RNA sequence: CACUAGUUACCGCCUUAACGGCUGUCGGGGCCAACUGGUCUCGGCUGUCGUGCCGGGGACCCACAGGUUCGUCUGGGGUGAAUCCUUGCGGCCAUUUUCGGUUGCGAGGUAGGGCCGCUCUCCCGGUCCGAACCCGUCAGCUAACCCGGUCGGCGGGAGAGCAGCAAGAU
Numbered sequence: 001c002a003c004u005a006g007u008u009a010c011c012g013c014c015u016u017a018a019c020g021g022c023u024g025u026c027g028g029g030g031c032c033a034a035c036u037g038g039u040c041u042c043g044g045c046u047g048u049c050g051u052g053c054c055g056g057g058g059a060c061c062c063a064c065a066g067g068u069u070c071g072u073c074u075g076g077g078g079u080g081a082a083u084c085c086u087u088g089c090g091g092c093c094a095u096u097u098u099c100g101g102u103u104g105c106g107a108g109g110u111a112g113g114g115c116c117g118c119u120c121u122c123c124c125g126g127u128c129c130g131a132a133c134c135c136g137u138c139a140g141c142u143a144a145c146c147c148g149g150u151c152g153g154c155g156g157g158a159g160a161g162c163a164g165c166a167a168g169a170u
Base pairs, nucleotide, nucleotide: 011155012154013153014152018051019050020049021048022047052150053149054148055147056146057145062075063074076135077134078133084109085108086107087106088105089104090103091102092101093100112129113128114127115126
About this RNA: Rfam assigns this 170-nucleotide RNA from Nocardia gamkensis to the family "c-di-AMP riboswitch aptamer (ydaO/yuaA leader)". Rfam links the family to the GO terms regulation of gene expression and cyclic-di-AMP binding. This family represents a conserved RNA structure found upstream of the ydaO and yuaA genes in Bacillus subtilis and related genes in other bacteria. NCBI's taxonomy places the organism under Bacteria, Bacillati, Actinomycetota, Mycobacteriales, Nocardia.